Rfam assigns this 84-nucleotide sequence from Sulfoacidibacillus thermotolerans to the family "c-di-GMP-I riboswitch aptamer".
The base pairs follow the family's consensus structure, which is taken from published work.
The match comes from Rfam's covariance-model search (71 bits).
The source organism's lineage runs through Bacteria, Bacilli, Caryophanales, Alicyclobacillaceae and Sulfoacidibacillus.
RNA sequence: UCACGAUAAUGGCACACUCGGCGAAAGCCGGGGCCGCAAAGUUCCAGACCUAAGGCGCAAGGCUAUGGUGGCUGAACUGCCGAA
Numbered sequence: 001u002c003a004c005g006a007u008a009a010u011g012g013c014a015c016a017c018u019c020g021g022c023g024a025a026a027g028c029c030g031g032g033g034c035c036g037c038a039a040a041g042u043u044c045c046a047g048a049c050c051u052a053a054g055g056c057g058c059a060a061g062g063c064u065a066u067g068g069u070g071g072c073u074g075a076a077c078u079g080c081c082g083a084a
Base pairs, nucleotide, nucleotide: 012037013036017032018031019030020029021028022027040078041077042076043075045074046073047072048069049068050067055063056062